[Rfam]
RNA: Metazoan signal recognition particle RNA
Organism: Phytophthora boehmeriae
RNA sequence: GCCGGGUUGAGUGGCGUCAACUUGUAACGGGAAGCUUCUGUCCGGGUAGUAAGGUGUGAGGGUUGAGGUAUGCGGUUCCGUGUCACUAUCCCCAGGAUGUGGAUGGCGCGUCCAUCUCAAACCAGGAGUGGACAUUGGGGCAUUGACGUAAGUCAGUGCACCGAGGUCCGUAAAGAAGGGUGUACUGCCCCAGGCUGGCUAACAGAGCAGGGAAAAGCCCUCGCUCUUGGUAGUGGGAGGAUCUCGUGCCAGAAUCCUGAUGUGGCGCGGUUCCGCUGUAAGCCUCGAUUCGAUCACCUUGCGU
Numbered sequence: 001g002c003c004g005g006g007u008u009g010a011g012u013g014g015c016g017u018c019a020a021c022u023u024g025u026a027a028c029g030g031g032a033a034g035c036u037u038c039u040g041u042c043c044g045g046g047u048a049g050u051a052a053g054g055u056g057u058g059a060g061g062g063u064u065g066a067g068g069u070a071u072g073c074g075g076u077u078c079c080g081u082g083u084c085a086c087u088a089u090c091c092c093c094a095g096g097a098u099g100u101g102g103a104u105g106g107c108g109c110g111u112c113c114a115u116c117u118c119a120a121a122c123c124a125g126g127a128g129u130g131g132a133c134a135u136u137g138g139g140g141c142a143u144u145g146a147c148g149u150a151a152g153u154c155a156g157u158g159c160a161c162c163g164a165g166g167u168c169c170g171u172a173a174a175g176a177a178g179g180g181u182g183u184a185c186u187g188c189c190c191c192a193g194g195c196u197g198g199c200u201a202a203c204a205g206a207g208c209a210g211g212g213a214a215a216a217g218c219c220c221u222c223g224c225u226c227u228u229g230g231u232a233g234u235g236g237g238a239g240g241a242u243c244u245c246g247u248g249c250c251a252g253a254a255u256c257c258u259g260a261u262g263u264g265g266c267g268c269g270g271u272u273c274c275g276c277u278g279u280a281a282g283c284c285u286c287g288a289u290u291c292g293a294u295c296a297c298c299u300u301g302c303g304u
Base pairs, nucleotide, nucleotide: 001047002046003045004023005022006021007020008019009018010017028044029043030042049302050301051300052299053298054297055296056295060291061290062289063288064287065286066285067284068283069282071280072279073278074277078270079269080268081267082266083265084264085263087262088261089260091259094258095257096256097255098254100252104251105250106249107248108247109246110245112240113239115238116237117236118235119234121231122230123229124228125227126226127225128224129223130169131168132167133166135164136163137162138161140159141158142157143156144155145154146153147152177221178220179219180218181217186214188212189211190210195205196204197203